[Rfam]
RNA sequence: GUAAGUGCGCCUCGGGUGAGCAUGCACUUAAUGUGGGUGUAUGUCACUCGGCUCGGCCCACUACC
Dot-bracket structure: (((.(((.(((((((((((.((((((((((...))))))))))))))))))...))).)))))).
Shown here is a 65-nucleotide RNA sequence from Pan troglodytes, a member of the family "mir-668 microRNA precursor family". The organism belongs to Pan, within Eukaryota. The base pairs follow the family's consensus structure, which was predicted with RNAalifold.